[Rfam]
RNA sequence: UGCUGGCAAACCAGGCACGGGCGUCGAGGAAACUCUGCGCCCGUGCACGCAUGUUGAGGGCAGGAAAAAACAU
Numbered sequence: 001u002g003c004u005g006g007c008a009a010a011c012c013a014g015g016c017a018c019g020g021g022c023g024u025c026g027a028g029g030a031a032a033c034u035c036u037g038c039g040c041c042c043g044u045g046c047a048c049g050c051a052u053g054u055u056g057a058g059g060g061c062a063g064g065a066a067a068a069a070a071c072a073u
Base pairs, nucleotide, nucleotide: 001013002012015046016045017044018043019042020041021040022039023038026035027034028033